The family of this 80-nucleotide RNA from Carlito syrichta is "mir-1301 microRNA precursor family". It scores 88 bits against the family's covariance model. Rfam links the family to the GO terms RISC complex and miRNA-mediated post-transcriptional gene silencing.
RNA sequence: GGAUUGUGGGGCAUCACUCUAGGCCCCGCAGCACUGUGCUGGGGUUGUUGCAGCUGCCUGGGAGUGACUUCACGCAGUCC
Numbered sequence: 001g002g003a004u005u006g007u008g009g010g011g012c013a014u015c016a017c018u019c020u021a022g023g024c025c026c027c028g029c030a031g032c033a034c035u036g037u038g039c040u041g042g043g044g045u046u047g048u049u050g051c052a053g054c055u056g057c058c059u060g061g062g063a064g065u066g067a068c069u070u071c072a073c074g075c076a077g078u079c080c
Base pairs, nucleotide, nucleotide: 001080002079003078004077005076006075007074008073010071011070014067015066016065017064018063019062020060021059022058023057024056026053028051029050030049031048032047033046034044035043